[Rfam]
RNA sequence: GUGCUACCAGGAGUUUCCUUCAAGCACUUCACGUGAAACAUUGUGUUUUGCGCAAGAGUAAACUCCGAAACCAAUGUGAAGUGUUUGGGGGAACUCUAGGUGGCAC
Number, nucleotide and partner (000 for none) at each position: 001g000002u000003g000004c000005u102006a101007c100008c099009a000010g000011g096012a095013g094014u093015u092016u091017c090018c089019u088020u087021c000022a086023a085024g084025c083026a082027c081028u080029u079030c078031a077032c076033g075034u074035g000036a000037a000038a000039c000040a000041u000042u000043g000044u000045g000046u000047u000048u000049u000050g000051c000052g000053c000054a000055a000056g000057a000058g000059u000060a000061a000062a000063c000064u000065c000066c000067g000068a000069a000070a000071c000072c000073a000074a034075u033076g032077u031078g030079a029080a028081g027082u026083g025084u024085u023086u022087g020088g019089g018090g017091g016092a015093a014094c013095u012096c011097u000098a000099g008100g007101u006102g005103g000104c000105a000106c000
The family of this 106-nucleotide RNA sequence from Eragrostis curvula is "mir-395 microRNA precursor family". The match comes from Rfam's covariance-model search (74 bits). About the family: mir-395 was identified in both Arabidopsis thaliana and Oryza sativa computationally and was later experimentally verified. mir-395 is thought to target mRNAs coding for ATP sulphurylases. The mature sequence is excised from the 3' arm of the hairpin. A reference for the family is Jones-Rhoades and Bartel (2004), "Computational Identification of Plant MicroRNAs and Their Targets, Including a Stress-Induced miRNA", Mol Cell.